[Rfam]
RNA sequence: GGCAGUUCUUGGAUGAUGCACCCUGGAAUUGGGCUCCCUUCUCUCUGGUUCUGGGUGCAUCACCCAAGAAUCGCA
Numbered sequence: 001g002g003c004a005g006u007u008c009u010u011g012g013a014u015g016a017u018g019c020a021c022c023c024u025g026g027a028a029u030u031g032g033g034c035u036c037c038c039u040u041c042u043c044u045c046u047g048g049u050u051c052u053g054g055g056u057g058c059a060u061c062a063c064c065c066a067a068g069a070a071u072c073g074c075a
Base pairs, nucleotide, nucleotide: 002074003073005071006070007069008068009067010066011065012064014062015061016060017059019057020056021055022054023053025052026051027050028049029048030047031046032045033044
The record is a 75-nucleotide RNA sequence from Pipistrellus kuhlii, which matches "mir-9223 microRNA precursor family" in Rfam. Taxonomically the source falls in Pipistrellus (Eukaryota, Euteleostomi, Theria, Boreoeutheria). The family's consensus secondary structure was predicted with RNAalifold.